[Rfam]
RNA sequence: CAAUAAUCAAUAGCGCCAGAACUCGCAAGCGGGACGGAAAUGUAGUGAGUUUGCUACUACUACGCAGGUGAGUUGACGAGGUGAAGGUGUUCGAAACAUUCGGCGGGGACCUUCCGGCAUGAGGAGUGCCGUUAAGUUGGAGAGCAAAAACGCUUGGGCGACCGGGCUGACAAGUAUCCAACAUCCAUUAAU
Dot-bracket structure: ...................(((((((..(((...............................)))..)))))))........(((((...((((.....))))......)))))((((((.....))))))....((((((........(.((((((....)))))))........))))))..........

The family of this 192-nucleotide RNA from Paenibacillus sp. yr247 is "glmS glucosamine-6-phosphate activated ribozyme aptamer". The family's RNA type in Rfam is riboswitch. Rfam describes the family as follows. This entry contains a glucosamine-6-phosphate activated ribozyme that is found in the mRNA for GlmS. GlmS is an enzyme that uses fructose-6-phosphate and glutamine to generate glucosamine-6-phosphate. The match comes from Rfam's covariance-model search (82 bits). Lineage of the source: Bacteria > Bacillati > Bacillota > Caryophanales > Paenibacillus.